[Rfam]
RNA sequence: AAAUGAAAUGAUGGCAGUCACCUUUCAGAACUGACCUGAAAUAAAGAGAAUAUUCUUUGCUGCUCACUU
Number, nucleotide and partner (000 for none) at each position: 001a069002a068003a000004u066005g065006a064007a000008a000009u000010g000011a000012u000013g000014g000015c000016a000017g000018u000019c000020a000021c000022c000023u000024u000025u000026c000027a000028g000029a000030a000031c000032u000033g000034a000035c000036c000037u000038g000039a000040a000041a000042u000043a000044a000045a000046g000047a000048g000049a000050a000051u000052a000053u000054u000055c000056u000057u000058u000059g000060c000061u000062g000063c000064u006065c005066a004067c000068u002069u001